Shown here is a 103-nucleotide sequence from Peribacillus asahii, a member of the family "SAM riboswitch aptamer (S box leader)". The base pairs follow the family's consensus structure, which is taken from published work.
RNA sequence: AUCUUAUCGAGAGAGGUGGAGGGACUGGCCCGAUGAAUCCUCAGCAACCAGCUGUGCAAGCUAAGGUGCUAAAUCCAGCAAGCGGGCGCUUGAUAGAUGAGGA
Numbered sequence: 001a002u003c004u005u006a007u008c009g010a011g012a013g014a015g016g017u018g019g020a021g022g023g024a025c026u027g028g029c030c031c032g033a034u035g036a037a038u039c040c041u042c043a044g045c046a047a048c049c050a051g052c053u054g055u056g057c058a059a060g061c062u063a064a065g066g067u068g069c070u071a072a073a074u075c076c077a078g079c080a081a082g083c084g085g086g087c088g089c090u091u092g093a094u095a096g097a098u099g100a101g102g103a
Stems, first nucleotide, its partner, number of pairs: 002102007013042004021031003025078004043070004048066002050062004074095001079092005
Overview: The source organism's lineage runs through Bacteria, Bacillota, Bacilli, Bacillaceae and Peribacillus.